[Rfam]
RNA sequence: ACAUUUCGAUCUGGUGGUGGGCUCGCUGAGGCGGCCUUGACCAGUCAUGCGUGAUUGAGAGAUGGAGCCGCCCGGAGAUUUCGAGGCGGCUUUUUU
Numbered sequence: 001a002c003a004u005u006u007c008g009a010u011c012u013g014g015u016g017g018u019g020g021g022c023u024c025g026c027u028g029a030g031g032c033g034g035c036c037u038u039g040a041c042c043a044g045u046c047a048u049g050c051g052u053g054a055u056u057g058a059g060a061g062a063u064g065g066a067g068c069c070g071c072c073c074g075g076a077g078a079u080u081u082c083g084a085g086g087c088g089g090c091u092u093u094u095u096u
Base pairs, nucleotide, nucleotide: 011044012043013042014041015040017038019037020036021035022034024033025032026031048059050057051056065092066091067090068089069088070087071086072085073083074082075081
Background:
This 96-nucleotide RNA from Ensifer meliloti belongs to the Rfam family "RcsR1 sRNA". Taxonomically the source falls in Ensifer meliloti (Bacteria, Hyphomicrobiales, Rhizobiaceae, Ensifer). The family's RNA type in Rfam is small RNA. RcsR1 (rhizobial cold and salinity stress riboregulator 1) trans-acting sRNA, formerly known as SmelC587, is a stress-related riboregulator, conserved in Sinorhizobium, Rhizobium and Agrobacterium. The sequence is in the family's curated seed alignment. The family's consensus secondary structure is taken from published work.